Group II catalytic intron D1-D4-4: a 122-nucleotide RNA sequence from Rhodopila globiformis.
It scores 84 bits against the family's covariance model.
Rfam's curators write: Group II introns are found in rRNA, tRNA and mRNA of organelles in fungi, plants and protists, and also in mRNA in bacteria.
The family has 90 seed sequences and 840 matches in Rfam 15.1.
RNA sequence: CCCGGGCAAUGGUCGGUUGGCCCGGUAGCUGGCAGGCGGUGCGGUUGGGCAAUUGGCCGUAUCGAAGCCCUGCGACAAAGGCCGCUUCUGGCGGUUGAGCGACUCGAUGGGCCGUAACGUGA
Numbered sequence: 001c002c003c004g005g006g007c008a009a010u011g012g013u014c015g016g017u018u019g020g021c022c023c024g025g026u027a028g029c030u031g032g033c034a035g036g037c038g039g040u041g042c043g044g045u046u047g048g049g050c051a052a053u054u055g056g057c058c059g060u061a062u063c064g065a066a067g068c069c070c071u072g073c074g075a076c077a078a079a080g081g082c083c084g085c086u087u088c089u090g091g092c093g094g095u096u097g098a099g100c101g102a103c104u105c106g107a108u109g110g111g112c113c114g115u116a117a118c119g120u121g122a
Stems, first nucleotide, its partner, number of pairs: 002025005032073005037064006046055001048053001080096006099115003